[Rfam]
RNA: Pseudomonas sRNA P10
Organism: Pseudomonas fluorescens
RNA sequence: CGUCACCGACCCAACCGGCUGCCCACUGCCUGGUCAUGGCAACAACCCGAUCGUCUCCGGCUCGCCGGACGU
Numbered sequence: 001c002g003u004c005a006c007c008g009a010c011c012c013a014a015c016c017g018g019c020u021g022c023c024c025a026c027u028g029c030c031u032g033g034u035c036a037u038g039g040c041a042a043c044a045a046c047c048c049g050a051u052c053g054u055c056u057c058c059g060g061c062u063c064g065c066c067g068g069a070c071g072u
Stems, first nucleotide, its partner, number of pairs: 007071002017040001019038001020036002023033003051069002056064001